RNA sequence: AAGACUAUACUUUCAGGGAUCAUUUCUAUAGUUCGUGACUAGAGAAGUUUCUCUGACCGUGUAGAGCACCGAAAACCACGAGGAGGAGGCGCAGCAUUCUCUCCUGAGCGUGAAGCCGGCUCCCGGCGCUGCCUCGCUGCAGCUGCCGCUUGUCAUUGAUGAUCGUUCUUCUCUGCCCUCGGGCGGAGCGAGAGGGAGAGAGUGCAGUCUGAGUGGC
Numbered sequence: 001a002a003g004a005c006u007a008u009a010c011u012u013u014c015a016g017g018g019a020u021c022a023u024u025u026c027u028a029u030a031g032u033u034c035g036u037g038a039c040u041a042g043a044g045a046a047g048u049u050u051c052u053c054u055g056a057c058c059g060u061g062u063a064g065a066g067c068a069c070c071g072a073a074a075a076c077c078a079c080g081a082g083g084a085g086g087a088g089g090c091g092c093a094g095c096a097u098u099c100u101c102u103c104c105u106g107a108g109c110g111u112g113a114a115g116c117c118g119g120c121u122c123c124c125g126g127c128g129c130u131g132c133c134u135c136g137c138u139g140c141a142g143c144u145g146c147c148g149c150u151u152g153u154c155a156u157u158g159a160u161g162a163u164c165g166u167u168c169u170u171c172u173c174u175g176c177c178c179u180c181g182g183g184c185g186g187a188g189c190g191a192g193a194g195g196g197a198g199a200g201a202g203u204g205c206a207g208u209c210u211g212a213g214u215g216g217c
Stems, first nucleotide, its partner, number of pairs: 002040002005037001006035001009032003015027004049065002054061001076216004094205012108166003118154003124148004128143005169191002171188007